[Rfam]
RNA sequence: AAAGAAGUAGUAUGCCGCAGCGUAUCCAUAACGGGCUUUGCUGCGGAUAAUUCUUUUAUGAACCCCCUUAGGAGUGAAUAAUGGCCCGUAUAGCCGGCAUUAACAUUCCUGAU
Numbered sequence: 001a002a003a004g005a006a007g008u009a010g011u012a013u014g015c016c017g018c019a020g021c022g023u024a025u026c027c028a029u030a031a032c033g034g035g036c037u038u039u040g041c042u043g044c045g046g047a048u049a050a051u052u053c054u055u056u057u058a059u060g061a062a063c064c065c066c067c068u069u070a071g072g073a074g075u076g077a078a079u080a081a082u083g084g085c086c087c088g089u090a091u092a093g094c095c096g097g098c099a100u101u102a103a104c105a106u107u108c109c110u111g112a113u
Stems, first nucleotide, its partner, number of pairs: 004056004009051001011049003026097002032088004041111001

Alpha operon ribosome binding site: a 113-nucleotide sequence from Vibrio sp. MED222. It is one of the family's seed sequences. Rfam links the family to the GO term ribosome binding. From the family's description: The bacterial alpha operon ribosome binding site is surrounded by this complex pseudoknotted structure. Translation of the mRNA produces 4 ribosomal protein products, one of which (S4) acts as a translational repressor by binding to the nested pseudoknot region. Pairs were carried over by alignment from the consensus structure, which is taken from published work.